TPP riboswitch aptamer (THI element): a 112-nucleotide RNA sequence from Agromyces sp. NDB4Y10.
RNA sequence: GGCAGUGACACGGGGUGCCGCCCCACCCGCCGAGCGGGAUGAAGCGGCUGAGAUCACACCCGUCGAACCUGAUCUAGUUCGGACUAGCGAAGGGAUGUCGCCAUGCGCGCAC
Numbered sequence: 001g002g003c004a005g006u007g008a009c010a011c012g013g014g015g016u017g018c019c020g021c022c023c024c025a026c027c028c029g030c031c032g033a034g035c036g037g038g039a040u041g042a043a044g045c046g047g048c049u050g051a052g053a054u055c056a057c058a059c060c061c062g063u064c065g066a067a068c069c070u071g072a073u074c075u076a077g078u079u080c081g082g083a084c085u086a087g088c089g090a091a092g093g094g095a096u097g098u099c100g101c102c103a104u105g106c107g108c109g110c111a112c
Base pairs, nucleotide, nucleotide: 006100007099008098009097010096011062012061013060014059016056017048018047019046020045021044068093069092070091074087075086076085077084
Pairs were carried over by alignment from the consensus structure, which is taken from published work.
The organism belongs to Agromyces, within Bacteria.
It scores 63 bits against the family's covariance model.